[Rfam]
This 79-nucleotide sequence from Alligator sinensis belongs to the Rfam family "Mammalian CPEB3 ribozyme". Pairs were carried over by alignment from the consensus structure, which is taken from published work.

RNA sequence: AGAGGUUGCAAGGUUGAGGCCAUAGCAGAAGCGCUCAGGGCAUGGCUUGUCAGAUUCCAGCAAAUCUGUGAAUUCUGCU
Numbered sequence: 001a002g003a004g005g006u007u008g009c010a011a012g013g014u015u016g017a018g019g020c021c022a023u024a025g026c027a028g029a030a031g032c033g034c035u036c037a038g039g040g041c042a043u044g045g046c047u048u049g050u051c052a053g054a055u056u057c058c059a060g061c062a063a064a065u066c067u068g069u070g071a072a073u074u075c076u077g078c079u
Stems, first nucleotide, its partner, number of pairs: 013047001019046003024079007031043001033041001051068006
Dot-bracket structure: ............[.....[[[..((((((((.(.......).)]]]]...((((((......))))))....)))))))